[Rfam]
RNA sequence: AAGUACAUCAGUAUAUGGGGAUGAUUCUUGCACAUUCAACGGUAGGGAUGAAGGAAAACUAAGUGGGGGAGGCUAUCCCCCACUUAUUGUUAAAU
Numbered sequence: 001a002a003g004u005a006c007a008u009c010a011g012u013a014u015a016u017g018g019g020g021a022u023g024a025u026u027c028u029u030g031c032a033c034a035u036u037c038a039a040c041g042g043u044a045g046g047g048a049u050g051a052a053g054g055a056a057a058a059c060u061a062a063g064u065g066g067g068g069g070a071g072g073c074u075a076u077c078c079c080c081c082a083c084u085u086a087u088u089g090u091u092a093a094a095u
Stems, first nucleotide, its partner, number of pairs: 008038001010036003016032002019029002061085010
The family of this 95-nucleotide RNA sequence from Citrobacter sp. JGM124 is "sraA".
Rfam classes the family as a small RNA.
It scores 74 bits against the family's covariance model.
The literature on the family includes a 2001 paper in Curr Biol by Argaman et al., "Novel small RNA-encoding genes in the intergenic regions of Escherichia coli".